The family of this 67-nucleotide sequence from Viridibacillus arenosi is "Bacillaceae-1 RNA". It is annotated as a small RNA.

RNA sequence: UAUAAAUGAAGAUAGCCUAAAACUGCCACGUCCUGUGGCAACGGCUAUCUGACCUACAUCCUGUCGG
Numbered sequence: 001u002a003u004a005a006a007u008g009a010a011g012a013u014a015g016c017c018u019a020a021a022a023c024u025g026c027c028a029c030g031u032c033c034u035g036u037g038g039c040a041a042c043g044g045c046u047a048u049c050u051g052a053c054c055u056a057c058a059u060c061c062u063g064u065c066g067g
Stems, first nucleotide, its partner, number of pairs: 011049007025039005053067002056064002